Shown here is a 139-nucleotide RNA sequence from Mycoplana azooxidifex, a member of the family "ybhL leader". On this family, see Corbino et al., Genome Biol 2005: "Evidence for a second class of S-adenosylmethionine riboswitches and other regulatory RNA motifs in alpha-proteobacteria". Its family is annotated with regulation of gene expression in the Gene Ontology. From the family's description: This family is a putative regulatory RNA structure that is found upstream of an uncharacterized membrane protein in alpha-proteobacteria.

RNA sequence: CAGGCAUGCUGGGGCCCCGCAGCGGCGCCUGGGUGUUCGGCACGACAUCGGCUGGAAAGCCUCGAUCGGCCGAAACAUCGCCCUGUCCGCAACAGGACCGGAUGCGACACCCGACACCGUAACAAUCAACGGGGCUUUC
Numbered sequence: 001c002a003g004g005c006a007u008g009c010u011g012g013g014g015c016c017c018c019g020c021a022g023c024g025g026c027g028c029c030u031g032g033g034u035g036u037u038c039g040g041c042a043c044g045a046c047a048u049c050g051g052c053u054g055g056a057a058a059g060c061c062u063c064g065a066u067c068g069g070c071c072g073a074a075a076c077a078u079c080g081c082c083c084u085g086u087c088c089g090c091a092a093c094a095g096g097a098c099c100g101g102a103u104g105c106g107a108c109a110c111c112c113g114a115c116a117c118c119g120u121a122a123c124a125a126u127c128a129a130c131g132g133g134g135c136u137u138u139c
Stems, first nucleotide, its partner, number of pairs: 012137008023119003030113008